[Rfam]
RNA: mir-9223 microRNA precursor family
RNA sequence: GGCAGUUCUCAGGUGACACAUUCUGGAAUCAGGCUCCCUCCUCUCUGGUUCCAGGUGUGACACCCAAGAACCGCA
Numbered sequence: 001g002g003c004a005g006u007u008c009u010c011a012g013g014u015g016a017c018a019c020a021u022u023c024u025g026g027a028a029u030c031a032g033g034c035u036c037c038c039u040c041c042u043c044u045c046u047g048g049u050u051c052c053a054g055g056u057g058u059g060a061c062a063c064c065c066a067a068g069a070a071c072c073g074c075a
Stems, first nucleotide, its partner, number of pairs: 002074002005071005012064004017059001019057003023054001025052009